RNA sequence: CCAAAGGCUCUUUUAAGAGCCACCCACUUACUCUCAAAAAGGAGCU
Numbered sequence: 001c002c003a004a005a006g007g008c009u010c011u012u013u014u015a016a017g018a019g020c021c022a023c024c025c026a027c028u029u030a031c032u033c034u035c036a037a038a039a040a041g042g043a044g045c046u
Stems, first nucleotide, its partner, number of pairs: 006021006
The family of this 46-nucleotide sequence from Nestor notabilis is "Histone 3' UTR stem-loop".
Taxonomically the source falls in Nestor (Eukaryota, Bilateria, Amniota, Telluraves).
It scores 40 bits against the family's covariance model.
From the family's description: The mRNAs of metazoan histone genes lack a poly-A tail. 3' end processing occurs at a site between a highly conserved stem-loop (modelled by this family) and a purine rich region around 20 nts downstream (the histone downstream element, or HDE). The stem-loop is bound by a 31 kDa stem-loop binding protein (SLBP - also termed the histone hairpin binding protein, or HBP). Together with U7 snRNA binding of the HDE, SLBP binding nucleate s the formation of the processing complex. The histone 3' UTR stem-loop is also involved in nucleocytoplasmic transport of the mRNA, and in stability regulation and translation efficiency in the cytoplasm.
By type it is a cis-regulatory element.